[Rfam]
RNA sequence: GUUGUAGCUGUCAAUGAUGGAAAACCUUGGCGACUGAUAACAGUGAUGUCAUUCUUCCUAUUUCGUCACUACCUCUGAGAUAGCUAUAGC
Numbered sequence: 001g002u003u004g005u006a007g008c009u010g011u012c013a014a015u016g017a018u019g020g021a022a023a024a025c026c027u028u029g030g031c032g033a034c035u036g037a038u039a040a041c042a043g044u045g046a047u048g049u050c051a052u053u054c055u056u057c058c059u060a061u062u063u064c065g066u067c068a069c070u071a072c073c074u075c076u077g078a079g080a081u082a083g084c085u086a087u088a089g090c
Stems, first nucleotide, its partner, number of pairs: 001090012